[Rfam]
RNA sequence: AUAAACCGGAGUCUAGAUACCGGCAAAACGGGGCGUAAUCGAAAAGCCAUACGAGUAGAGCAACA
Numbered sequence: 001a002u003a004a005a006c007c008g009g010a011g012u013c014u015a016g017a018u019a020c021c022g023g024c025a026a027a028a029c030g031g032g033g034c035g036u037a038a039u040c041g042a043a044a045a046g047c048c049a050u051a052c053g054a055g056u057a058g059a060g061c062a063a064c065a
Base pairs, nucleotide, nucleotide: 006023007022008021009020032048033047034046039059040058
The family of this 65-nucleotide RNA sequence from Mucilaginibacter gilvus is "DUF805 RNA". It is annotated as a cis-regulatory element. Lineage of the source: Bacteria > Sphingobacteriia > Sphingobacteriales > Sphingobacteriaceae > Mucilaginibacter. Clan: DUF805 clan.